[Rfam]
A member of the RNA family "Small nucleolar RNA Z152/R70/R12/" from Anisodus acutangulus, 94 nucleotides long.
The source organism's lineage runs through Eukaryota, Mesangiospermae, Solanales, Solanaceae and Anisodus.
The family has 9 seed sequences and 604 matches in Rfam 15.1.
RNA sequence: UAUGCUAUGAUGAGAUAAAGCACCAUAGGGUGUAAUAGAGCAGUGGUUUUACCGUGAGCUUAUUAAUUAACGACUUCUCCUUCCACUGAGCAUA
Numbered sequence: 001u002a003u004g005c006u007a008u009g010a011u012g013a014g015a016u017a018a019a020g021c022a023c024c025a026u027a028g029g030g031u032g033u034a035a036u037a038g039a040g041c042a043g044u045g046g047u048u049u050u051a052c053c054g055u056g057a058g059c060u061u062a063u064u065a066a067u068u069a070a071c072g073a074c075u076u077c078u079c080c081u082u083c084c085a086c087u088g089a090g091c092a093u094a
Stems, first nucleotide, its partner, number of pairs: 001094005